Shown here is an 89-nucleotide sequence from Pongo pygmaeus, a member of the family "mir-4484 microRNA precursor family". It is one of the family's seed sequences. The base pairs follow the family's consensus structure, which was predicted with RNAalifold. Gene Ontology terms of the family: RISC complex and miRNA-mediated post-transcriptional gene silencing.
RNA sequence: UCUGGGGUUUCCUCUGCCUUUUUUUCCAAUGAAAAUAACGAAACCUCUUAUUUCCCAUUGAGGGGGAAAAAGGCGGGAGAAGCCCCGGC
Numbered sequence: 001u002c003u004g005g006g007g008u009u010u011c012c013u014c015u016g017c018c019u020u021u022u023u024u025u026c027c028a029a030u031g032a033a034a035a036u037a038a039c040g041a042a043a044c045c046u047c048u049u050a051u052u053u054c055c056c057a058u059u060g061a062g063g064g065g066g067a068a069a070a071a072g073g074c075g076g077g078a079g080a081a082g083c084c085c086c087g088g089c
Stems, first nucleotide, its partner, number of pairs: 002088010013077015028059004033053006040046001